[Rfam]
RNA sequence: ACAAAGGCUCUUUUAAGAGCCACCCAUCUUCUCACUGAAAGACACU
Numbered sequence: 001a002c003a004a005a006g007g008c009u010c011u012u013u014u015a016a017g018a019g020c021c022a023c024c025c026a027u028c029u030u031c032u033c034a035c036u037g038a039a040a041g042a043c044a045c046u
Base pairs, nucleotide, nucleotide: 006021007020008019009018010017011016
The family of this 46-nucleotide RNA from Sinocyclocheilus anshuiensis is "Histone 3' UTR stem-loop". About the family: The mRNAs of metazoan histone genes lack a poly-A tail. 3' end processing occurs at a site between a highly conserved stem-loop (modelled by this family) and a purine rich region around 20 nts downstream (the histone downstream element, or HDE). The stem-loop is bound by a 31 kDa stem-loop binding protein (SLBP - also termed the histone hairpin binding protein, or HBP). The organism belongs to Sinocyclocheilus, within Eukaryota. A search with the family's covariance model found it, with a score of 38 bits.